Source information:
Alphaproteobacteria transfer-messenger RNA: a 343-nucleotide RNA from Erythrobacter sp. SG61-1L. The literature on the family includes a 1996 paper in RNA by Williams and Bartel, "Phylogenetic analysis of tmRNA secondary structure". The family's RNA type in Rfam is non-coding RNA gene. Bacterial tmRNA, also known as 10Sa RNA or SsrA, is named for its dual tRNA and mRNA-like properties. Its role is to liberate the mRNA from a stalled ribosome. To accomplish this part of the tmRNA is used as a reading frame that ends in a translation stop signal. The broken mRNA is replaced in the ribosome by the tmRNA and translation of the tmRNA leads to addition of a proteolysis tag to the incomplete protein enabling recognition by a protease.

RNA sequence: CCACUUCCCAUUCAGCAAAGCGCCCCUAUAUAGGGCCUGCCGGUUUCGGCCGGCUAUGGCGAUAAAUUGCGGUGUGCAAUAGGCACAGCGGACCCGGGGGCAGUACCCGGCGGCUCCACCACCUCCUCCGUUGUCGCGGGGGAAAUGACGGGGCCGAACCAGGAUCGACGUGUGUUGAAAAGCACUGUUUUCGCCCGGGCUGAGUAACCCGUUAAAGGCUCAAAACUCAUAAGUGCCAACGACAACGAAGCACUCGCUCUCGCGGCGUAAUGUGACGGCCUAACGGCCUGAAUUUACAAAGCUAAAGCGCGGUUGGACCCACCGGGCAACAGAAGUGGAUUCC
Numbered sequence: 001c002c003a004c005u006u007c008c009c010a011u012u013c014a015g016c017a018a019a020g021c022g023c024c025c026c027u028a029u030a031u032a033g034g035g036c037c038u039g040c041c042g043g044u045u046u047c048g049g050c051c052g053g054c055u056a057u058g059g060c061g062a063u064a065a066a067u068u069g070c071g072g073u074g075u076g077c078a079a080u081a082g083g084c085a086c087a088g089c090g091g092a093c094c095c096g097g098g099g100g101c102a103g104u105a106c107c108c109g110g111c112g113g114c115u116c117c118a119c120c121a122c123c124u125c126c127u128c129c130g131u132u133g134u135c136g137c138g139g140g141g142g143a144a145a146u147g148a149c150g151g152g153g154c155c156g157a158a159c160c161a162g163g164a165u166c167g168a169c170g171u172g173u174g175u176u177g178a179a180a181a182g183c184a185c186u187g188u189u190u191u192c193g194c195c196c197g198g199g200c201u202g203a204g205u206a207a208c209c210c211g212u213u214a215a216a217g218g219c220u221c222a223a224a225a226c227u228c229a230u231a232a233g234u235g236c237c238a239a240c241g242a243c244a245a246c247g248a249a250g251c252a253c254u255c256g257c258u259c260u261c262g263c264g265g266c267g268u269a270a271u272g273u274g275a276c277g278g279c280c281u282a283a284c285g286g287c288c289u290g291a292a293u294u295u296a297c298a299a300a301g302c303u304a305a306a307g308c309g310c311g312g313u314u315g316g317a318c319c320c321a322c323c324g325g326g327c328a329a330c331a332g333a334a335g336u337g338g339a340u341u342c343c
Base pairs, nucleotide, nucleotide: 039054040053041052042051043050058195059194060193061192062191069188070187071186072185073184074183075182084174085173086172088171089170090169094110095109096108097107098106111156112155113154114153115152116151117150196211197210198209199208201222202221203220310324311323312322313321315341316340318338319337